[Rfam]
RNA sequence: CUCUAGGUCAGGCAAUGACUUAGGGCAAAAGGAG
Number, nucleotide and partner (000 for none) at each position: 001c025002u024003c023004u022005a021006g000007g000008u018009c017010a016011g000012g000013c000014a000015a000016u010017g009018a008019c000020u000021u005022a004023g003024g002025g001026c000027a000028a000029a000030a000031g000032g000033a000034g000
Rfam assigns this 34-nucleotide RNA sequence from Lacticaseibacillus nasuensis to the family "L31-Firmicutes ribosomal protein leader".
It scores 35 bits against the family's covariance model.
A reference for the family is Eckert and Weinberg (2020), "Discovery of 20 novel ribosomal leader candidates in bacteria and archaea", BMC Microbiol.
The family is grouped with related families in Rfam's "Ribosomal Protein L31 Leader clan".
The family's RNA type in Rfam is cis-regulatory leader.
Lineage of the source: Bacteria > Bacillati > Lactobacillaceae > Lacticaseibacillus > Lacticaseibacillus nasuensis.
The base pairs follow the family's consensus structure, which is taken from published work.